[Rfam]
RNA sequence: GCCGCCCUGGCUUCCUGCCUGCGUCUUGUAUAGUAUAUAUAUGAAUUAUACAUACACAUAUAUACUGUACAUAACGCAGGCAGGAAGCCACGGCGGC
Numbered sequence: 001g002c003c004g005c006c007c008u009g010g011c012u013u014c015c016u017g018c019c020u021g022c023g024u025c026u027u028g029u030a031u032a033g034u035a036u037a038u039a040u041a042u043g044a045a046u047u048a049u050a051c052a053u054a055c056a057c058a059u060a061u062a063u064a065c066u067g068u069a070c071a072u073a074a075c076g077c078a079g080g081c082a083g084g085a086a087g088c089c090a091c092g093g094c095g096g097c
Base pairs, nucleotide, nucleotide: 001097002096003095004094005093006092008090009089010088011087012086013085014084016082017081018080019079020078021077022076023075024074027071028070029069030068031067032066

A member of the RNA family "mir-160 microRNA precursor family" from Homarus americanus, 97 nucleotides long. The match comes from Rfam's covariance-model search (48 bits). Gene Ontology terms of the family: RISC complex and miRNA-mediated post-transcriptional gene silencing.